[Rfam]
RNA sequence: GGUCCGGGUGUGCGAGGUGGGAAUUCGCACAAGCAUAGGGCCAACGCGUCUGGCACAGCCGAGGCAUCCGUUACCCACCGGAUGUCUCG
Dot-bracket structure: (((((....(((((((.......))))))).......))))).................(((((.(((((........))))).)))))